[Rfam]
RNA: azaaromatic riboswitch aptamer (yjdF RNA)
Organism: Dielma fastidiosa
RNA sequence: UCAUACAAAGAUAAAAACACGAACUGGCCGGUAGUCCAGUUGCAGGAAACUGUCAGUAACCUUCCUCCUUAGGUCGUCCAUUCUUUGUUCAUGUAUA
Numbered sequence: 001u002c003a004u005a006c007a008a009a010g011a012u013a014a015a016a017a018c019a020c021g022a023a024c025u026g027g028c029c030g031g032u033a034g035u036c037c038a039g040u041u042g043c044a045g046g047a048a049a050c051u052g053u054c055a056g057u058a059a060c061c062u063u064c065c066u067c068c069u070u071a072g073g074u075c076g077u078c079c080a081u082u083c084u085u086u087g088u089u090c091a092u093g094u095a096u097a
Base pairs, nucleotide, nucleotide: 005088006087007086008085009084010083011082022041023040024039025038026037027036042053043052044051045050064073065072066071